Description: c-di-GMP-II-GAG riboswitch aptamer: an 85-nucleotide RNA from Deinococcus peraridilitoris.

RNA sequence: ACGACCCUCGGAGGCGCAGACCUUCACCCACCUAACCGGUCACCUGGGGUGAAGCGAGCCAAUGGUGAGACCGCACGAGGAGCAC
Numbered sequence: 001a002c003g004a005c006c007c008u009c010g011g012a013g014g015c016g017c018a019g020a021c022c023u024u025c026a027c028c029c030a031c032c033u034a035a036c037c038g039g040u041c042a043c044c045u046g047g048g049g050u051g052a053a054g055c056g057a058g059c060c061a062a063u064g065g066u067g068a069g070a071c072c073g074c075a076c077g078a079g080g081a082g083c084a085c
Stems, first nucleotide, its partner, number of pairs: 003083001006080005013060003022054008038072002040068005
Its Rfam clan is "c-di-GMP_II riboswitch clan". It is one of the family's seed sequences. NCBI's taxonomy places the organism under Bacteria, Deinococcota, Deinococcales, Deinococcaceae, Deinococcus peraridilitoris.